The record is a 126-nucleotide RNA from Lathyrus oleraceus, which matches "Small nucleolar RNA snoR74" in Rfam. Pairs were carried over by alignment from the consensus structure, which was predicted with WAR.
RNA sequence: AAAAAAGCUGUGGUUUGUUGCCUUUGUGAGCAGUCCUCUUGUUAAAUUUAGGGAUAUAGAAUCCAUUGUUAUUGGGUGAACCUCUUUCCCUUUGUGUGUGAAGGUUCAGUAAACGAUGAAACAUUU
Numbered sequence: 001a002a003a004a005a006a007g008c009u010g011u012g013g014u015u016u017g018u019u020g021c022c023u024u025u026g027u028g029a030g031c032a033g034u035c036c037u038c039u040u041g042u043u044a045a046a047u048u049u050a051g052g053g054a055u056a057u058a059g060a061a062u063c064c065a066u067u068g069u070u071a072u073u074g075g076g077u078g079a080a081c082c083u084c085u086u087u088c089c090c091u092u093u094g095u096g097u098g099u100g101a102a103g104g105u106u107c108a109g110u111a112a113a114c115g116a117u118g119a120a121a122c123a124u125u126u
Base pairs, nucleotide, nucleotide: 005048006047012036015033016032017031064118065117066116067115068114069113070112077108078107079106080105081104082103083102

The match comes from Rfam's covariance-model search (87 bits). NCBI's taxonomy places the organism under Eukaryota, Embryophyta, Spermatophyta, fabids, Lathyrus.